The family of this 362-nucleotide RNA sequence from Aspergillus saccharolyticus is "A. fumigatus sRNA Afu_309". A search with the family's covariance model found it, with a score of 253 bits. On this family, see Jochl et al., Nucleic Acids Res 2008: "Small ncRNA transcriptome analysis from Aspergillus fumigatus suggests a novel mechanism for regulation of protein synthesis".
[Rfam]
Nucleotides: 362
Base pairs, nucleotide, nucleotide: 014171015170016169017168018167019166020165021164022104023103024102026100027099029097030096031095032094033091034090035089036088038085039084041081042080043079044078045077047075048074049073050072051071052070112163113162114161115160116159120149121148123146124145125144182278183277188274189273190272191271192270193269204262205261206260207259210258211257212256213255214254215253216251217250283355284354285353286350287349288348289347290346299339300338301337302336303335306333307332308331315325316324317323318322
Number, partner (000 for none) and nucleotide at each position: 001000u002000u003000c004000a005000a006000c007000a008000c009000a010000u011000c012000a013000c014171g015170g016169a017168u018167c019166u020165g021164u022104g023103u024102c025000a026100g027099g028000c029097g030096a031095u032094c033091c034090u035089g036088u037000u038085c039084a040000u041081g042080g043079a044078g045077g046000g047075g048074g049073a050072a051071g052070a053000a054000u055000g056000c057000a058000g059000c060000a061000u062000g063000c064000u065000g066000u067000u068000u069000c070052u071051c072050u073049u074048u075047c076000u077045c078044u079043u080042u081041c082000u083000g084039u085038g086000u087000u088036a089035c090034g091033g092000u093000u094032g095031a096030u097029u098000a099027c100026c101000g102024g103023a104022c105000a106000g107000u108000u109000c110000g111000a112163c113162g114161a115160c116159u117000u118000a119000a120149g121148g122000a123146g124145c125144c126000a127000u128000c129000a130000c131000u132000u133000g134000u135000c136000u137000a138000g139000u140000u141000g142000g143000u144125g145124g146123u147000c148121u149120u150000a151000c152000a153000u154000u155000a156000u157000c158000c159116g160115g161114u162113c163112g164021a165020c166019a167018g168017a169016u170015c171014u172000c173000a174000g175000a176000u177000u178000g179000a180000a181000a182278g183277u184000c185000g186000g187000c188274a189273c190272u191271g192270g193269g194000g195000g196000u197000u198000c199000a200000c201000u202000c203000u204262g205261g206260u207259c208000u209000u210258g211257a212256g213255c214254u215253c216251c217250c218000u219000u220000g221000u222000u223000c224000u225000c226000u227000u228000c229000c230000c231000u232000c233000a234000u235000c236000g237000a238000g239000g240000g241000a242000g243000a244000g245000g246000a247000c248000u249000u250217g251216g252000u253215g254214a255213g256212c257211u258210c259207g260206g261205c262204c263000g264000g265000a266000g267000u268000u269193c270192c271191c272190g273189g274188u275000u276000u277183g278182c279000u280000g281000a282000c283355g284354g285353c286350g287349u288348c289347a290346u291000a292000u293000u294000c295000c296000u297000a298000c299339u300338c301337u302336c303335u304000u305000u306333a307332c308331c309000g310000a311000u312000u313000u314000u315325g316324g317323c318322c319000g320000u321000c322318g323317g324316c325315c326000g327000a328000u329000g330000a331308g332307g333306u334000u335303a336302g337301g338300g339299a340000a341000a342000a343000a344000c345000c346290a347289u348288g349287a350286c351000c352000a353285g354284c355283c356000a357000a358000c359000a360000u361000u362000c